[Rfam]
RNA sequence: CCCGGUCCUCGGUAGUGGCUUUCGGUUCGACGCGGACCGCGAGCUUCGAUCGAAGACCGGU
Numbered sequence: 001c002c003c004g005g006u007c008c009u010c011g012g013u014a015g016u017g018g019c020u021u022u023c024g025g026u027u028c029g030a031c032g033c034g035g036a037c038c039g040c041g042a043g044c045u046u047c048g049a050u051c052g053a054a055g056a057c058c059g060g061u
Base pairs, nucleotide, nucleotide: 002060003059004058005057006056007055009053010052011051012050013049017045018044019043020042021041023039024038025037026036027035028034029033
The family of this 61-nucleotide sequence from Virgisporangium aliadipatigenens is "Actino-pnp RNA". The match comes from Rfam's covariance-model search (68 bits).